[Rfam]
RNA: tRNA
RNA sequence: GGAGGGAUUUUCAAUGUUGGUAGUUGGAGUUGAGCUGUAAACUCAAUGACUUAGGUCUUCAUAGGUUCAAUUCCUAUUCCCUUCA
Numbered sequence: 001g002g003a004g005g006g007a008u009u010u011u012c013a014a015u016g017u018u019g020g021u022a023g024u025u026g027g028a029g030u031u032g033a034g035c036u037g038u039a040a041a042c043u044c045a046a047u048g049a050c051u052u053a054g055g056u057c058u059u060c061a062u063a064g065g066u067u068c069a070a071u072u073c074c075u076a077u078u079c080c081c082u083u084c085a
Stems, first nucleotide, its partner, number of pairs: 001084007010028006030046005061077005